This 45-nucleotide RNA sequence belongs to the Rfam family "Acido-Lenti-1 RNA". By type it is a small RNA.

RNA sequence: CCUGGGGCCUUGCCCCAGGCUGUUGUGGAACGCCCCUUCGGGGCU
Numbered sequence: 001c002c003u004g005g006g007g008c009c010u011u012g013c014c015c016c017a018g019g020c021u022g023u024u025g026u027g028g029a030a031c032g033c034c035c036c037u038u039c040g041g042g043g044c045u
Stems, first nucleotide, its partner, number of pairs: 001019008032044005
Dot-bracket structure: ((((((((...))))))))............(((((...))))).